A member of the RNA family "CRISPR RNA direct repeat element" from Gloeothece citriformis, 37 nucleotides long. Rfam 15.1 lists 201 matches to the family in 33 species. Taxonomically the source falls in Gloeothece citriformis (Bacteria, Bacillati, Chroococcales, Aphanothecaceae).
RNA sequence: CUUUCAACCCAUCCCACAUCGGGAGGGCUGUUGAAAC
Number, nucleotide and partner (000 for none) at each position: 001c000002u000003u000004u000005c033006a032007a031008c030009c027010c026011a000012u000013c023014c022015c021016a000017c000018a000019u000020c000021g015022g014023g013024a000025g000026g010027g009028c000029u000030g008031u007032u006033g005034a000035a000036a000037c000